[Rfam]
Rfam assigns this 59-nucleotide sequence from Otus sunia to the family "Selenocysteine insertion sequence 1". It scores 36 bits against the family's covariance model. On this family, see Walczak et al., RNA 1996: "A novel RNA structural motif in the selenocysteine insertion element of eukaryotic selenoprotein mRNAs". Rfam describes the family as follows. The incorporation of selenocysteine into a protein sequence is directed by an in-frame UGA codon (usually a stop codon) within the coding region of the mRNA. Selenoprotein mRNAs contain a conserved secondary structure in the 3' UTR that is required for the distinction of UGA stop from UGA selenocysteine. The selenocysteine insertion sequence (SECIS) is around 60 nt in length and adopts a hairpin structure which is sufficiently well-defined and conserved to act as a computational screen for selenoprotein genes. The family's consensus secondary structure is taken from published work. Taxonomically the source falls in Otus (Eukaryota, Deuterostomia, Chordata, Saurischia). Rfam classes the family as a cis-regulatory element. Gene Ontology term of the family: selenocysteine incorporation.

RNA sequence: AUAUUUUUAUGACAGUCACAGCAUAAAGCACAGGCGGCUGUGACCUGAUUGUGGAAAAU
Numbered sequence: 001a002u003a004u005u006u007u008u009a010u011g012a013c014a015g016u017c018a019c020a021g022c023a024u025a026a027a028g029c030a031c032a033g034g035c036g037g038c039u040g041u042g043a044c045c046u047g048a049u050u051g052u053g054g055a056a057a058a059u
Base pairs, nucleotide, nucleotide: 001059002058004056005055015044016043017042018041019040020039021038022037028035029034
Dot-bracket structure: ((.((.........((((((((.....((....)).))))))))..........)).))